RNA sequence: GCCUCCAGGCCCUAAUAGACCUGGUCUCCAAGGCACUGGAGGC
Numbered sequence: 001g002c003c004u005c006c007a008g009g010c011c012c013u014a015a016u017a018g019a020c021c022u023g024g025u026c027u028c029c030a031a032g033g034c035a036c037u038g039g040a041g042g043c
Stems, first nucleotide, its partner, number of pairs: 001043008010033002013030001

The family of this 43-nucleotide sequence from Human T-lymphotropic virus 4 is "ribosomal frameshift site". Gene Ontology term of the family: viral translational frameshifting. The source organism's lineage runs through Viruses, Riboviria, Pararnavirae, Orthoretrovirinae and Deltaretrovirus.